[Rfam]
RNA sequence: AAGGUAAAGGGGCAAUAACCCAUUUCUUGAGAGAACAAAAAGUUGGUUAUUGCCCCUUUACU
Numbered sequence: 001a002a003g004g005u006a007a008a009g010g011g012g013c014a015a016u017a018a019c020c021c022a023u024u025u026c027u028u029g030a031g032a033g034a035a036c037a038a039a040a041a042g043u044u045g046g047u048u049a050u051u052g053c054c055c056c057u058u059u060a061c062u
Stems, first nucleotide, its partner, number of pairs: 006059012022043001024041002027038003

The record is a 62-nucleotide RNA, which matches "Plastid-psbA-4 3UTR RNA" in Rfam.
Clan: Plastid-psbA 3UTR RNA clan.
The family's consensus secondary structure was predicted with LocARNA.
About the family: Plastid psbA-4 is a non-coding RNA (ncRNA) present in plastids. It was identified in inverted repeat sequences in the 3 prime untranslate region (3UTR) of photosystem II quinone-binding protein (psbA).
Rfam's curators put it in the seed alignment.
The family's RNA type in Rfam is cis-regulatory element.